Rfam assigns this 464-nucleotide sequence from Orbilia oligospora to the family "RNase MRP". Rfam links the family to the GO terms ribonuclease MRP activity, rRNA processing and ribonuclease MRP complex. It is annotated as a ribozyme. The match comes from Rfam's covariance-model search (84 bits). The organism belongs to Orbilia oligospora, within Eukaryota.

[Rfam]
RNA sequence: CCCUCGCUCAAACAAUCGCCAUCAAAGCCACAAACAGACAAUGAGGGAAUCAUCCUUUCAUUCGUCCAUUUCACAGAAAGCUUUGGGAGAAAGUCCCCGGACGUAGUUUUGUUUUCCAAACAAAACCAGUUGAAAAACACCGACAUAGAAGCAUUGAUUCCAUUCGGUUUAUCAUACAGCAUUAUAAAACAAUUACACCCGCUUUCUUCGGCUUCACAACCGUUAGUUACUACCACGUUCAAACACCGAUUAUUUGUCUCUCGCCCUUCGGGGUUGAUCGUAGACUGUUUUCUUUGUUGUGGAAGGAUUCGGGGGUGGUCGAAGUUUGUGGAAAUUGGGGAGUUCACGCUCUCUGGUGCUGGUUUUUAAUUUUCGUCAAAGAUUGGAUAGUUAUGCGAUUGUUUUGUACUUUCUUCGAAAGAAGGGUAUGAGGUGACUCGAUGGGGCUUAUUCUUGAGGCGAGG
Numbered sequence: 001c002c003c004u005c006g007c008u009c010a011a012a013c014a015a016u017c018g019c020c021a022u023c024a025a026a027g028c029c030a031c032a033a034a035c036a037g038a039c040a041a042u043g044a045g046g047g048a049a050u051c052a053u054c055c056u057u058u059c060a061u062u063c064g065u066c067c068a069u070u071u072c073a074c075a076g077a078a079a080g081c082u083u084u085g086g087g088a089g090a091a092a093g094u095c096c097c098c099g100g101a102c103g104u105a106g107u108u109u110u111g112u113u114u115u116c117c118a119a120a121c122a123a124a125a126c127c128a129g130u131u132g133a134a135a136a137a138c139a140c141c142g143a144c145a146u147a148g149a150a151g152c153a154u155u156g157a158u159u160c161c162a163u164u165c166g167g168u169u170u171a172u173c174a175u176a177c178a179g180c181a182u183u184a185u186a187a188a189a190c191a192a193u194u195a196c197a198c199c200c201g202c203u204u205u206c207u208u209c210g211g212c213u214u215c216a217c218a219a220c221c222g223u224u225a226g227u228u229a230c231u232a233c234c235a236c237g238u239u240c241a242a243a244c245a246c247c248g249a250u251u252a253u254u255u256g257u258c259u260c261u262c263g264c265c266c267u268u269c270g271g272g273g274u275u276g277a278u279c280g281u282a283g284a285c286u287g288u289u290u291u292c293u294u295u296g297u298u299g300u301g302g303a304a305g306g307a308u309u310c311g312g313g314g315g316u317g318g319u320c321g322a323a324g325u326u327u328g329u330g331g332a333a334a335u336u337g338g339g340g341a342g343u344u345c346a347c348g349c350u351c352u353c354u355g356g357u358g359c360u361g362g363u364u365u366u367u368a369a370u371u372u373u374c375g376u377c378a379a380a381g382a383u384u385g386g387a388u389a390g391u392u393a394u395g396c397g398a399u400u401g402u403u404u405u406g407u408a409c410u411u412u413c414u415u416c417g418a419a420a421g422a423a424g425g426g427u428a429u430g431a432g433g434u435g436a437c438u439c440g441a442u443g444g445g446g447c448u449u450a451u452u453c454u455u456g457a458g459g460c461g462a463g464g
Base pairs, nucleotide, nucleotide: 002464003463004462005461006460007459008457009456010455011454014400015399016398017397018396019395022087023085024084025083026082027081028080037066038065039064041062091449092448093447095446096445097444098443107125108124109123110122111121112120333370335368339366340365341364342363343362344361348359349358351356402433403432404431405430406429407428408427409426410425411424412423